[Rfam]
Shown here is a 177-nucleotide RNA from Ricinus communis, a member of the family "MIR530 microRNA precursor family".
The base pairs follow the family's consensus structure, which was predicted with WAR.
The sequence is in the family's curated seed alignment.
Rfam links the family to the GO terms miRNA-mediated post-transcriptional gene silencing and RISC complex.
RNA sequence: GCCAAUAUGUUGCCUUUAUCUGCAUUUGCACCUGCACCUUAAGUUUCUUUGUUUCUUCUUCUUCUUUUUUCUUUUUUAAGAAGUCUACUUCUUCUAAAUUAUGGGUUUUCAAUAUAUAGAGGAUUGAAACAAGCAAAUAUAGGUGCAGGUGUGAGUGCAGGUGAAUGCCAUUUUGGU
Number, nucleotide and partner (000 for none) at each position: 001g177002c176003c175004a174005a173006u000007a171008u170009g169010u000011u000012g168013c167014c000015u165016u164017u163018a162019u161020c160021u159022g158023c157024a156025u155026u154027u153028g152029c151030a150031c149032c148033u147034g146035c145036a144037c143038c142039u141040u000041a000042a000043g000044u000045u000046u000047c000048u000049u000050u000051g000052u000053u000054u000055c083056u082057u081058c080059u079060u078061c000062u000063u000064c000065u000066u000067u000068u000069u000070u000071c000072u000073u000074u000075u000076u000077u000078a060079a059080g058081a057082a056083g055084u000085c000086u000087a000088c000089u000090u000091c000092u000093u000094c000095u000096a000097a000098a000099u000100u000101a000102u000103g000104g000105g000106u000107u000108u000109u000110c000111a000112a000113u000114a000115u000116a000117u000118a000119g000120a000121g000122g000123a000124u000125u000126g000127a000128a000129a000130c000131a000132a000133g000134c000135a000136a000137a000138u000139a000140u000141a039142g038143g037144u036145g035146c034147a033148g032149g031150u030151g029152u028153g027154a026155g025156u024157g023158c022159a021160g020161g019162u018163g017164a016165a015166u000167g013168c012169c009170a008171u007172u000173u005174u004175g003176g002177u001